[Rfam]
RNA sequence: UGCUUAUGGAGAAAGACGGAGGGAUUAGACCCAACGAUGUCUUAGCAACCUGUGCUUACAAGGUGCUACAUUCUACUCUAACCAAACUUUUUAGUUGGAGACAGAUAAGCG
Numbered sequence: 001u002g003c004u005u006a007u008g009g010a011g012a013a014a015g016a017c018g019g020a021g022g023g024a025u026u027a028g029a030c031c032c033a034a035c036g037a038u039g040u041c042u043u044a045g046c047a048a049c050c051u052g053u054g055c056u057u058a059c060a061a062g063g064u065g066c067u068a069c070a071u072u073c074u075a076c077u078c079u080a081a082c083c084a085a086a087c088u089u090u091u092u093a094g095u096u097g098g099a100g101a102c103a104g105a106u107a108a109g110c111g
Stems, first nucleotide, its partner, number of pairs: 001111007013043005021032003026075004044067004049063002051060003071103001076100006
About this RNA:
The family of this 111-nucleotide RNA from Mucilaginibacter arboris is "SAM riboswitch aptamer (S box leader)". Rfam links the family to the GO term regulation of gene expression. The match comes from Rfam's covariance-model search (65 bits).